c-di-AMP riboswitch aptamer (ydaO/yuaA leader): a 179-nucleotide RNA sequence from Paenibacillus contaminans. It scores 88 bits against the family's covariance model. Lineage of the source: Bacteria > Bacillota > Bacilli > Caryophanales > Paenibacillus.
[Rfam]
RNA sequence: UUUUCCAAUUCGCUGAGUUUCCGUAUGGGAAACGGGGGAACCGAAAAUAACCUUUCGCGUAUUUGCAGCGGGGGUUAUGGUUAAAGGGGUGAAUCGCAGAUUCCGUAAGGAUAUCCGCGUAGGGCGACUCUCACGUCCGAAUCCGUCAGCUAACCUCGUAAGCGUUGACGAGAGAGGUA
Numbered sequence: 001u002u003u004u005c006c007a008a009u010u011c012g013c014u015g016a017g018u019u020u021c022c023g024u025a026u027g028g029g030a031a032a033c034g035g036g037g038g039a040a041c042c043g044a045a046a047a048u049a050a051c052c053u054u055u056c057g058c059g060u061a062u063u064u065g066c067a068g069c070g071g072g073g074g075u076u077a078u079g080g081u082u083a084a085a086g087g088g089g090u091g092a093a094u095c096g097c098a099g100a101u102u103c104c105g106u107a108a109g110g111a112u113a114u115c116c117g118c119g120u121a122g123g124g125c126g127a128c129u130c131u132c133a134c135g136u137c138c139g140a141a142u143c144c145g146u147c148a149g150c151u152a153a154c155c156u157c158g159u160a161a162g163c164g165u166u167g168a169c170g171a172g173a174g175a176g177g178u179a
Base pairs, nucleotide, nucleotide: 011164012163013162014161018031019030020029032159033158034157035156036155037154042086087144088143089142095119096118097117122138123137124136125135